A member of the RNA family "c-di-GMP-I-GGC riboswitch aptamer" from Paenibacillus sp. FSL H7-0357, 94 nucleotides long. The family's consensus secondary structure is taken from published work. The organism belongs to Paenibacillus, within Bacteria.
[Rfam]
RNA sequence: UGAAACAAAGGCAAAUCCGUACGAAAGUCGGAGACGCAAAGCCACGGGUCUACUUCAUCCAAAGGAGGAUGUUAAGACAGCCGGGCCGCUCAAG
Numbered sequence: 001u002g003a004a005a006c007a008a009a010g011g012c013a014a015a016u017c018c019g020u021a022c023g024a025a026a027g028u029c030g031g032a033g034a035c036g037c038a039a040a041g042c043c044a045c046g047g048g049u050c051u052a053c054u055u056c057a058u059c060c061a062a063a064g065g066a067g068g069a070u071g072u073u074a075a076g077a078c079a080g081c082c083g084g085g086c087c088g089c090u091c092a093a094g
Stems, first nucleotide, its partner, number of pairs: 001094001004090001011037002016032004021028002035080001041086003045083003048078003